RNA: U1 spliceosomal RNA
RNA sequence: AAACUUACCUGGCUGGGAGACUCUUCCGAUCAUGAAGGGUGGAUCUCUAGGGUGAGGCUUGACCAUUGCACUUAUCGGUUUUCAGGCUGACCUCUAUGGCUGUCCGAAUCGGAUACGCCAACAGCUAAAUUUUUGGGUGGGGAGGAUAGCGUUCGCGCUUCCUCCA
Dot-bracket structure: ...........(((((((((..((.((..........)).)).)))))((((.(.(((.(((((............))...))).)))..))))).((((((.((.....)).)).)))).))))...............(((((..((((....)))).))))).